[Rfam]
RNA: Purine riboswitch aptamer
RNA sequence: UUAUAAUGACCAAGUUGCCCUCGUAUAUGUUCGAAGAUAUGGUUCGGAUGUUUCUACCAAGUUGCCGUUAACAACUUGACUAUGAAGGUGAAUGCAGUCAUG
Numbered sequence: 001u002u003a004u005a006a007u008g009a010c011c012a013a014g015u016u017g018c019c020c021u022c023g024u025a026u027a028u029g030u031u032c033g034a035a036g037a038u039a040u041g042g043u044u045c046g047g048a049u050g051u052u053u054c055u056a057c058c059a060a061g062u063u064g065c066c067g068u069u070a071a072c073a074a075c076u077u078g079a080c081u082a083u084g085a086a087g088g089u090g091a092a093u094g095c096a097g098u099c100a101u102g
Stems, first nucleotide, its partner, number of pairs: 018088002021085005029049007058078007